Rfam assigns this 87-nucleotide sequence from Triplophysa rosa to the family "mir-363 microRNA precursor family". Its family is annotated with RISC complex and miRNA-mediated post-transcriptional gene silencing in the Gene Ontology. Clan: mir-19 clan.

Nucleotides: 087
Stems, first nucleotide, its partner, number of pairs: 009078009019069002023065009
Number, partner (000 for none) and nucleotide at each position: 001000g002000c003000u004000g005000u006000u007000u008000u009078c010077g011076g012075g013074u014073g015072g016071a017070u018000g019069a020068c021000u022000u023065u024064g025063c026062a027061a028060u029059u030058u031057u032000a033000a034000c035000u036000a037000c038000g039000a040000c041000c042000a043000a044000a045000a046000u047000c048000u049000u050000c051000a052000g053000a054000a055000a056000a057031a058030a059029a060028a061027u062026u063025g064024c065023a066000c067000a068020g069019u070017a071016u072015c073014c074013a075012u076011c077010u078009g079000u080000a081000a082000u083000c084000c085000g086000c087000c
The literature on the family includes a 2010 paper in BMC Genomics by Linsen et al., "Small RNA expression and strain specificity in the rat". NCBI's taxonomy places the organism under Eukaryota, Actinopterygii, Clupeocephala, Cobitoidei, Triplophysa.